[Rfam]
RNA: Guanidine-I riboswitch aptamer
Organism: Chamaesiphon minutus
RNA sequence: UAGGAUUGCUUCUAGGGUUCCGAUCGCAUUAUUGUCGAUGACUGGUCCGAGAGAAGCCGCCGAUUGGGGUGUAUAGAUACCACUAAUUCGGUCACACGGCGGGAUAAAAGCCCGGGAGAA
Number, nucleotide and partner (000 for none) at each position: 001u000002a000003g000004g000005a000006u000007u000008g057009c056010u055011u054012c053013u000014a000015g048016g047017g000018u000019u000020c045021c044022g042023a039024u038025c037026g036027c000028a000029u000030u000031a000032u000033u000034g000035u000036c026037g025038a024039u023040g000041a000042c022043u000044g021045g020046u000047c016048c015049g000050a000051g000052a000053g012054a011055a010056g009057c008058c000059g092060c091061c090062g089063a088064u000065u086066g000067g000068g000069g000070u000071g000072u000073a000074u000075a000076g000077a000078u000079a000080c000081c000082a000083c000084u000085a000086a065087u000088u063089c062090g061091g060092u059093c000094a000095c115096a000097c118098g000099g000100c000101g113102g112103g111104a000105u000106a000107a000108a000109a000110g000111c103112c102113c101114g000115g095116g000117a000118g097119a000120a000